[Rfam]
RNA sequence: CUAUCGUAGUGUGUGCGAUAGCAUUGCGUUAGGGGUUACUUUCGAGAGAUUUGGAGGGGUUGGUCCCUCCGGUGAGAGAAGAAAACUCAUCCCAAACAAAAAACAGGGUUUCUGAUAACCGGUGCGACAAUAUGCCCUUCCAAGGCACUGACCGGCACGGAGAAAAACUAUAAUGCCAUGUCGUAUAACGGCUAGGCACCCC
Numbered sequence: 001c002u003a004u005c006g007u008a009g010u011g012u013g014u015g016c017g018a019u020a021g022c023a024u025u026g027c028g029u030u031a032g033g034g035g036u037u038a039c040u041u042u043c044g045a046g047a048g049a050u051u052u053g054g055a056g057g058g059g060u061u062g063g064u065c066c067c068u069c070c071g072g073u074g075a076g077a078g079a080a081g082a083a084a085a086c087u088c089a090u091c092c093c094a095a096a097c098a099a100a101a102a103a104c105a106g107g108g109u110u111u112c113u114g115a116u117a118a119c120c121g122g123u124g125c126g127a128c129a130a131u132a133u134g135c136c137c138u139u140c141c142a143a144g145g146c147a148c149u150g151a152c153c154g155g156c157a158c159g160g161a162g163a164a165a166a167a168c169u170a171u172a173a174u175g176c177c178a179u180g181u182c183g184u185a186u187a188a189c190g191g192c193u194a195g196g197c198a199c200c201c202c
Stems, first nucleotide, its partner, number of pairs: 005028008053070007071092002073089004174198004180192005
Dot-bracket structure: ....((((((((........))))))))........................(((((((....)))))))((((((.........)))).)).................................................................................((((..(((((...)))))..))))....

Dianthovirus RNA2 3'UTR stem loops: a 202-nucleotide RNA sequence from Dianthovirus trifolii. By type it is a cis-regulatory element. The base pairs follow the family's consensus structure. The source organism's lineage runs through Viruses, Tolivirales, Tombusviridae, Dianthovirus and Dianthovirus trifolii.